[Rfam]
RNA sequence: GAGGCGGUAUCCUUCGGAACUGUACUCCUCAUGCGUAUCUCACUUUACAAUCGCAUACCAAUCUUUAUUCUGCUCUGAGCCGACAGCGGACCGAGACAGAGGA
Numbered sequence: 001g002a003g004g005c006g007g008u009a010u011c012c013u014u015c016g017g018a019a020c021u022g023u024a025c026u027c028c029u030c031a032u033g034c035g036u037a038u039c040u041c042a043c044u045u046u047a048c049a050a051u052c053g054c055a056u057a058c059c060a061a062u063c064u065u066u067a068u069u070c071u072g073c074u075c076u077g078a079g080c081c082g083a084c085a086g087c088g089g090a091c092c093g094a095g096a097c098a099g100a101g102g103a
Base pairs, nucleotide, nucleotide: 001027002026003025004023005022006021007020008019010018011017070099071098072097073095074094075093077091080089081088

Rfam assigns this 103-nucleotide RNA from Effusibacillus lacus to the family "pan motif". Lineage of the source: Bacteria > Bacillati > Bacillota > Caryophanales > Effusibacillus. The base pairs follow the family's consensus structure, which is taken from published work.